RNA sequence: UAUGCGGACCGGGCCCCUCUGGCAAUUGAUCCCCUGAAGGAUCUGUUGCGAUGUCGGACCGCAUCG
Numbered sequence: 001u002a003u004g005c006g007g008a009c010c011g012g013g014c015c016c017c018u019c020u021g022g023c024a025a026u027u028g029a030u031c032c033c034c035u036g037a038a039g040g041a042u043c044u045g046u047u048g049c050g051a052u053g054u055c056g057g058a059c060c061g062c063a064u065c066g
Stems, first nucleotide, its partner, number of pairs: 006060002009057004022049005028043005
Shown here is a 66-nucleotide sequence from Hyphomonas neptunium, a member of the family "terC RNA". The source organism's lineage runs through Bacteria, Pseudomonadati, Hyphomonadales, Hyphomonadaceae and Hyphomonas neptunium. The sequence is in the family's curated seed alignment. The family's RNA type in Rfam is cis-regulatory element.